This 156-nucleotide RNA sequence from Thauera aminoaromatica belongs to the Rfam family "radC RNA".
Rfam 15.1 lists 500 matches to the family in 142 species.
NCBI's taxonomy places the organism under Bacteria, Pseudomonadati, Betaproteobacteria, Rhodocyclales, Thauera.
It is one of the family's seed sequences.
[Rfam]
RNA sequence: AGGCUGACGCCUUGCCCCGCCGACUGACGUCGGCAGCACCCCAGGCAGCCAAGAUCUUCAAGGCUGCGGCGCGAUCCGUCGCGCUGGUCGUUGUCCUGCUCGACGCCUCGGCGCGUCACUUCCUCAACCCUCAAGGGAUUUCCUCCCUUGCAGGGC
Number, nucleotide and partner (000 for none) at each position: 001a000002g000003g000004c000005u000006g000007a000008c000009g000010c000011c000012u000013u038014g037015c000016c000017c000018c000019g034020c033021c032022g031023a030024c029025u000026g000027a000028c000029g024030u023031c022032g021033g020034c019035a000036g000037c014038a013039c000040c000041c000042c000043a000044g000045g067046c066047a065048g064049c063050c062051a000052a000053g089054a088055u087056c086057u000058u000059c000060a000061a000062g050063g049064c048065u047066g046067c045068g085069g084070c083071g082072c081073g080074a079075u000076c000077c000078g000079u074080c073081g072082c071083g070084c069085u068086g056087g055088u054089c053090g000091u000092u000093g000094u000095c000096c000097u000098g000099c000100u000101c000102g000103a000104c000105g000106c000107c000108u000109c000110g000111g000112c000113g000114c000115g000116u000117c000118a000119c000120u000121u000122c000123c000124u000125c155126a000127a000128c000129c000130c000131u000132c150133a149134a148135g147136g146137g145138a144139u000140u000141u000142c000143c000144u138145c137146c136147c135148u134149u133150g132151c000152a000153g000154g000155g125156c000